Overview: Shown here is a 66-nucleotide sequence from Ornithorhynchus anatinus, a member of the family "mir-302 microRNA precursor family". Pairs were carried over by alignment from the consensus structure, which was predicted with RNAalifold. NCBI's taxonomy places the organism under Eukaryota, Amniota, Mammalia, Prototheria, Ornithorhynchus. For this family Rfam cites "Human embryonic stem cells express a unique set of microRNAs" (Suh et al., Dev Biol, 2004).
[Rfam]
RNA sequence: CUGUCACUUAAACGUGGAUAAACUUGCUUUACUUUUAAAGUAAGUGCUUCCAUGUUUUAGUGAUGG
Number, nucleotide and partner (000 for none) at each position: 001c066002u065003g064004u000005c062006a061007c060008u059009u000010a057011a056012a055013c054014g053015u052016g051017g050018a049019u000020a000021a000022a045023c044024u043025u042026g041027c040028u039029u000030u000031a000032c000033u000034u000035u000036u000037a000038a000039a028040g027041u026042a025043a024044g023045u022046g000047c000048u000049u018050c017051c016052a015053u014054g013055u012056u011057u010058u000059a008060g007061u006062g005063a000064u003065g002066g001